[Rfam]
RNA sequence: GCCCUUUUCAAAAGCCUGUGCCAACCCUAUGUUGGUUGUGCCGGAGCAAUCCGGAUAUGGCGAUAAAUGACCUGUGUAAUAAACCAUUCGGACCCGGGGGCGGUACCCGGCGCCUCCACCAGACGGCUUGUUUAAUAGCCAAUCGAAGCUGUCUGGCGGGGGCGAAAUAGGAUCGACGAGGGUGUAAAGACUGCGUUUUUGCUCGGCAUGGUACCCACCGAUAUCGGGCCAUUAUAGUAGUUGCAAAUGAUAACAACUAUGCAGAAGCACGGGUCGCAGCGUAAGCUGUGCCUCGACUUCGACUUUAAGUCCUAGGGGGUCAUAUCCUUAGGCGGGGUUCGGAGGCACCUGGCAACAGAAGCCUCCACU
Numbered sequence: 001g002c003c004c005u006u007u008u009c010a011a012a013a014g015c016c017u018g019u020g021c022c023a024a025c026c027c028u029a030u031g032u033u034g035g036u037u038g039u040g041c042c043g044g045a046g047c048a049a050u051c052c053g054g055a056u057a058u059g060g061c062g063a064u065a066a067a068u069g070a071c072c073u074g075u076g077u078a079a080u081a082a083a084c085c086a087u088u089c090g091g092a093c094c095c096g097g098g099g100g101c102g103g104u105a106c107c108c109g110g111c112g113c114c115u116c117c118a119c120c121a122g123a124c125g126g127c128u129u130g131u132u133u134a135a136u137a138g139c140c141a142a143u144c145g146a147a148g149c150u151g152u153c154u155g156g157c158g159g160g161g162g163c164g165a166a167a168u169a170g171g172a173u174c175g176a177c178g179a180g181g182g183u184g185u186a187a188a189g190a191c192u193g194c195g196u197u198u199u200u201g202c203u204c205g206g207c208a209u210g211g212u213a214c215c216c217a218c219c220g221a222u223a224u225c226g227g228g229c230c231a232u233u234a235u236a237g238u239a240g241u242u243g244c245a246a247a248u249g250a251u252a253a254c255a256a257c258u259a260u261g262c263a264g265a266a267g268c269a270c271g272g273g274u275c276g277c278a279g280c281g282u283a284a285g286c287u288g289u290g291c292c293u294c295g296a297c298u299u300c301g302a303c304u305u306u307a308a309g310u311c312c313u314a315g316g317g318g319g320u321c322a323u324a325u326c327c328u329u330a331g332g333c334g335g336g337g338u339u340c341g342g343a344g345g346c347a348c349c350u351g352g353c354a355a356c357a358g359a360a361g362c363c364u365c366c367a368c369u
Stems, first nucleotide, its partner, number of pairs: 041054004059203005069197003072193001074191002084182002088179003094110005111164007204220003209231003214227002335350004341366006
Dot-bracket structure: ........................................((((......))))....(((((.....((((.((........((..(((...(((((.......)))))(((((((........................................)))))))............))).)).......)).).))).)))))[[[..(((..((..]]].....)).))).......................................................................................................[[[[..((((((]]]]..........))))))...
This 369-nucleotide RNA from Ahrensia sp. R2A130 belongs to the Rfam family "Alphaproteobacteria transfer-messenger RNA".
It scores 280 bits against the family's covariance model.
On this family, see Williams, Nucleic Acids Res 2002: "The tmRNA Website: invasion by an intron".